RNA sequence: CUUUACCUUUUUGCUUGCCAGCCAGCCAGCCCACUUGCAGCCCUAAGGGUUCGAGCCAUUGGCGAAAAGUGGUGGCAUGCUGUUCUGCCAGUAACUCGGUGGGUGCCAUUAAGGCAACCUGCUUGCCGUGAGCAAUGGCACGCAGUGCGGCCAGUGCUGCAACCAAUGUUUUCCCGGAGCCAACAUCCCCUUGAAUCAAUCGCAUCAUUGGGAAGUUAUGGGCCAUAUCUUGCUCGAUCUCCGCCACUACUCGUU
Numbered sequence: 001c002u003u004u005a006c007c008u009u010u011u012u013g014c015u016u017g018c019c020a021g022c023c024a025g026c027c028a029g030c031c032c033a034c035u036u037g038c039a040g041c042c043c044u045a046a047g048g049g050u051u052c053g054a055g056c057c058a059u060u061g062g063c064g065a066a067a068a069g070u071g072g073u074g075g076c077a078u079g080c081u082g083u084u085c086u087g088c089c090a091g092u093a094a095c096u097c098g099g100u101g102g103g104u105g106c107c108a109u110u111a112a113g114g115c116a117a118c119c120u121g122c123u124u125g126c127c128g129u130g131a132g133c134a135a136u137g138g139c140a141c142g143c144a145g146u147g148c149g150g151c152c153a154g155u156g157c158u159g160c161a162a163c164c165a166a167u168g169u170u171u172u173c174c175c176g177g178a179g180c181c182a183a184c185a186u187c188c189c190c191u192u193g194a195a196u197c198a199a200u201c202g203c204a205u206c207a208u209u210g211g212g213a214a215g216u217u218a219u220g221g222g223c224c225a226u227a228u229c230u231u232g233c234u235c236g237a238u239c240u241c242c243g244c245c246a247c248u249a250c251u252c253g254u255u
Base pairs, nucleotide, nucleotide: 002215003214004213006211007210012093013092014091015090017088018087020086021085027082028081029080030079034074036072042064043061045059048057049056050055095132096131097130098129102127103126104125105124110121111120113118136153137152138151139150141147142146154205155204156203157202159200164193165192166191168189176188177187178186219253220252221251222250228246230243232241

This 255-nucleotide sequence from Yersinia intermedia belongs to the Rfam family "Yersinia sRNA 141". It is annotated as a small RNA. The sequence is in the family's curated seed alignment. Rfam describes the family as follows. Shown to regulate the synthesis of the type III secretion system (T3SS) effector protein YopJ.The Yop-Ysc T3SS is a critical component of virulence for Yersinia species.